[Rfam]
RNA sequence: ACAACAUUCGGACCGUCGGUCUACCGAGCAAAUAUCACACGCUCGUUGGAAGGUCUUUCCCUACGUCGA
Numbered sequence: 001a002c003a004a005c006a007u008u009c010g011g012a013c014c015g016u017c018g019g020u021c022u023a024c025c026g027a028g029c030a031a032a033u034a035u036c037a038c039a040c041g042c043u044c045g046u047u048g049g050a051a052g053g054u055c056u057u058u059c060c061c062u063a064c065g066u067c068g069a
Stems, first nucleotide, its partner, number of pairs: 004066002010060003015054003020050004025045005

Rfam assigns this 69-nucleotide RNA sequence from Bombyx mori to the family "mir-2774 microRNA precursor family". The match comes from Rfam's covariance-model search (67 bits). Its family is annotated with miRNA-mediated post-transcriptional gene silencing and RISC complex in the Gene Ontology. NCBI's taxonomy places the organism under Eukaryota, Metazoa, Pterygota, Neoptera, Bombyx.